RNA sequence: GGACGGCGUCGCGACUGGCGCAGCCCCCUCCGCACGCGGGGACGGGGCAGGUGGAUGACCACCAGGGAGCGGCAACGCUGUAACGACGACGGGUCGUCCGCCUGGGCCCUGUGU
Numbered sequence: 001g002g003a004c005g006g007c008g009u010c011g012c013g014a015c016u017g018g019c020g021c022a023g024c025c026c027c028c029u030c031c032g033c034a035c036g037c038g039g040g041g042a043c044g045g046g047g048c049a050g051g052u053g054g055a056u057g058a059c060c061a062c063c064a065g066g067g068a069g070c071g072g073c074a075a076c077g078c079u080g081u082a083a084c085g086a087c088g089a090c091g092g093g094u095c096g097u098c099c100g101c102c103u104g105g106g107c108c109c110u111g112u113g114u
Base pairs, nucleotide, nucleotide: 004077005076008073009072010071011070012069015066016065017102018101019100020099051062052061053060054059091109092108093107094106095105
RNA: ZMP/ZTP riboswitch aptamer (pfl RNA motif)
Organism: Xylanimonas allomyrinae